[Rfam]
RNA sequence: CCGUGCUAGGUGGGGAGGUAGCGGUGCCCUGUAACCCGCAAUCCGCUACAGCGGGACACAAUUCCUCGAAGAGGUCUUGUGAUGUGAGGUCGACUUUUACACGUGGUGUUGAGAGUCGGGUCCUCCGCAAUGGAAGCUUGUGAACCCGGUCAGGUCCGGAAGGAAGCAGCCGUAAGCAGGAAGUUCCAUGUGCCGGAGGGUUGCCUGAUUUGAGCCGUCGAUAGGAGUAACGCUCGGAUCGCAACGAUCAAUGAGAGGUGCGCGG
Numbered sequence: 001c002c003g004u005g006c007u008a009g010g011u012g013g014g015g016a017g018g019u020a021g022c023g024g025u026g027c028c029c030u031g032u033a034a035c036c037c038g039c040a041a042u043c044c045g046c047u048a049c050a051g052c053g054g055g056a057c058a059c060a061a062u063u064c065c066u067c068g069a070a071g072a073g074g075u076c077u078u079g080u081g082a083u084g085u086g087a088g089g090u091c092g093a094c095u096u097u098u099a100c101a102c103g104u105g106g107u108g109u110u111g112a113g114a115g116u117c118g119g120g121u122c123c124u125c126c127g128c129a130a131u132g133g134a135a136g137c138u139u140g141u142g143a144a145c146c147c148g149g150u151c152a153g154g155u156c157c158g159g160a161a162g163g164a165a166g167c168a169g170c171c172g173u174a175a176g177c178a179g180g181a182a183g184u185u186c187c188a189u190g191u192g193c194c195g196g197a198g199g200g201u202u203g204c205c206u207g208a209u210u211u212g213a214g215c216c217g218u219c220g221a222u223a224g225g226a227g228u229a230a231c232g233c234u235c236g237g238a239u240c241g242c243a244a245c246g247a248u249c250a251a252u253g254a255g256a257g258g259u260g261c262g263c264g265g
Stems, first nucleotide, its partner, number of pairs: 001265006010057002012030004017025001019023001035055005064258004070252001073249004079242005085236004093228001095226005103219001105216003113211009122199006128190002131188005137180005147172004155164003
RNA: Bacterial large signal recognition particle RNA
Organism: Paenibacillus swuensis